[Rfam]
RNA: nadA riboswitch
RNA sequence: GCUUUCAACAUCCCCGUUCCGGAACGAGCGUGAGCCUAUUGCGGAAUAGCCGCAAUUCCAUUCUGCAUCCGGAGCUGAAGGC
Numbered sequence: 001g002c003u004u005u006c007a008a009c010a011u012c013c014c015c016g017u018u019c020c021g022g023a024a025c026g027a028g029c030g031u032g033a034g035c036c037u038a039u040u041g042c043g044g045a046a047u048a049g050c051c052g053c054a055a056u057u058c059c060a061u062u063c064u065g066c067a068u069c070c071g072g073a074g075c076u077g078a079a080g081g082c
Base pairs, nucleotide, nucleotide: 001082002081003080004079005078006077007076016075017074018073019072020071021070022069028066029065030064032063033062